[Rfam]
RNA sequence: GUAGGAAUAUUGAGAAGAUCUGACUCCAGUACGAGAGGACCGGGUUGGACGUACCGCUAGUGUACCUGUUGUGGUGUCCACUGCAUUGCAGGGUAGCUAUGUACGGAACGGAUAAGCGCUGAAAGCAUCUAAGCGCGAAGCCAACUUCGAGAUAAGUAUUCCCUUGAGGGUCGCAGAAGAUGACUGCGUUGAUAGGCUAUAGGUGGAAGUGUGGUAACAUAUGGAGCCGAGUAGUACUAAUAGCCCGACA
Numbered sequence: 001g002u003a004g005g006a007a008u009a010u011u012g013a014g015a016a017g018a019u020c021u022g023a024c025u026c027c028a029g030u031a032c033g034a035g036a037g038g039a040c041c042g043g044g045u046u047g048g049a050c051g052u053a054c055c056g057c058u059a060g061u062g063u064a065c066c067u068g069u070u071g072u073g074g075u076g077u078c079c080a081c082u083g084c085a086u087u088g089c090a091g092g093g094u095a096g097c098u099a100u101g102u103a104c105g106g107a108a109c110g111g112a113u114a115a116g117c118g119c120u121g122a123a124a125g126c127a128u129c130u131a132a133g134c135g136c137g138a139a140g141c142c143a144a145c146u147u148c149g150a151g152a153u154a155a156g157u158a159u160u161c162c163c164u165u166g167a168g169g170g171u172c173g174c175a176g177a178a179g180a181u182g183a184c185u186g187c188g189u190u191g192a193u194a195g196g197c198u199a200u201a202g203g204u205g206g207a208a209g210u211g212u213g214g215u216a217a218c219a220u221a222u223g224g225a226g227c228c229g230a231g232u233a234g235u236a237c238u239a240a241u242a243g244c245c246c247g248a249c250a
Stems, first nucleotide, its partner, number of pairs: 004162008014148004020048007050105005058099003065092005070085006110142002116136005165248001168246004172188005193239003196235005202228002209222005

The family of this 250-nucleotide part of an RNA from Lewinellaceae bacterium SD302 is "Bacterial large subunit ribosomal RNA". For this family Rfam cites "Crystal structure of the ribosome at 5.5 A resolution" (Yusupov et al., Science, 2001). Its family is annotated with ribosome and structural constituent of ribosome in the Gene Ontology. A search with the family's covariance model found it, with a score of 2692 bits.